[Rfam]
Rfam assigns this 128-nucleotide RNA from Podarcis lilfordi to the family "Small nucleolar RNA SNORA13". From the family's description: ACA13 is a member of the H/ACA class of snoRNA that guide the sites of modification of uridines to pseudouridines. It is annotated as an H/ACA-box small nucleolar RNA. Its family is annotated with nucleolus and RNA processing in the Gene Ontology. The family has 50 seed sequences and 1,034 matches in Rfam 15.1.

RNA sequence: UGCCUUUGUGUUGCCCAUUCAUUACUUUCCCUAGUGAAUGUGGUGUCAGAAAAGGCAUAUAUUAACUUUAGCUGUCAUACUACCAGGAGUUGGUUAUGUACCUUCUCUGUAUUUCAGCUAAAACACAC
Numbered sequence: 001u002g003c004c005u006u007u008g009u010g011u012u013g014c015c016c017a018u019u020c021a022u023u024a025c026u027u028u029c030c031c032u033a034g035u036g037a038a039u040g041u042g043g044u045g046u047c048a049g050a051a052a053a054g055g056c057a058u059a060u061a062u063u064a065a066c067u068u069u070a071g072c073u074g075u076c077a078u079a080c081u082a083c084c085a086g087g088a089g090u091u092g093g094u095u096a097u098g099u100a101c102c103u104u105c106u107c108u109g110u111a112u113u114u115c116a117g118c119u120a121a122a123a124c125a126c127a128c
Base pairs, nucleotide, nucleotide: 002056003055004054005053006052007051009048010047012045013044014043015042016040017039018038019037020036021035022034023033068121069120070119071118072117073116074115084109087107088106092101